[Rfam]
RNA sequence: UUACUUACCUGGAUGGGAUCAAUGGGCGAUCAACAAGGCUCAUGGUCUAGGUUAAGUGACUUCCAUUGCACUUUGGAGGGGUGCUCACCUAAGGUCGGCCCAAGUGGUCGAGCCUACGUCAUAAUUUGUGUUAGAGGAGGCCUGCGUCCGCGCGGCCUCUG
Number, nucleotide and partner (000 for none) at each position: 001u000002u000003a000004c000005u000006u000007a000008c000009c000010u000011g000012g120013a119014u118015g117016g048017g047018a046019u045020c044021a043022a000023u042024g041025g040026g039027c038028g000029a000030u000031c000032a000033a000034c000035a000036a000037g000038g027039c026040u025041c024042a023043u021044g020045g019046u018047c017048u016049a090050g089051g088052u087053u000054a000055a000056g084057u083058g082059a000060c080061u079062u078063c076064c075065a000066u000067u000068g000069c000070a000071c000072u000073u000074u000075g064076g063077a000078g062079g061080g060081g000082u058083g057084c056085u000086c000087a052088c051089c050090u049091a000092a115093g114094g113095u111096c110097g109098g000099c107100c106101c000102a000103a000104g000105u000106g100107g099108u000109c097110g096111a095112g000113c094114c093115u092116a000117c015118g014119u013120c012121a000122u000123a000124a000125u000126u000127u000128g000129u000130g000131u000132u000133a000134g000135a000136g160137g159138a158139g157140g000141c000142c000143u154144g153145c152146g151147u000148c000149c000150g000151c146152g145153c144154g143155g000156c000157c139158u138159c137160u136161g000
This 161-nucleotide RNA sequence from Centaurea solstitialis belongs to the Rfam family "U1 spliceosomal RNA". From the family's description: U1 is a small nuclear RNA (snRNA) component of the spliceosome (involved in pre-mRNA splicing). Its 5' end forms complementary base pairs with the 5' splice junction, thus defining the 5' donor site of an intron. There are significant differences in sequence and secondary structure between metazoan and yeast U1 snRNAs, the latter being much longer (568 nucleotides as compared to 164 nucleotides in human). The literature on the family includes a 2009 paper in Nature by Pomeranz Krummel et al., "Crystal structure of human spliceosomal U1 snRNP at 5.5 A resolution". Clan: U1 clan.